[Rfam]
RNA: mir-234 microRNA precursor family
Organism: Mesorhabditis spiculigera
RNA sequence: GCGAUCGGUAUUCUCCAGUUAAUAGCACGCCCACCGACUGCUGUUAUUGCUCGAGAAUACUCAUUGC
Numbered sequence: 001g002c003g004a005u006c007g008g009u010a011u012u013c014u015c016c017a018g019u020u021a022a023u024a025g026c027a028c029g030c031c032c033a034c035c036g037a038c039u040g041c042u043g044u045u046a047u048u049g050c051u052c053g054a055g056a057a058u059a060c061u062c063a064u065u066g067c
Stems, first nucleotide, its partner, number of pairs: 008060006017051003021048007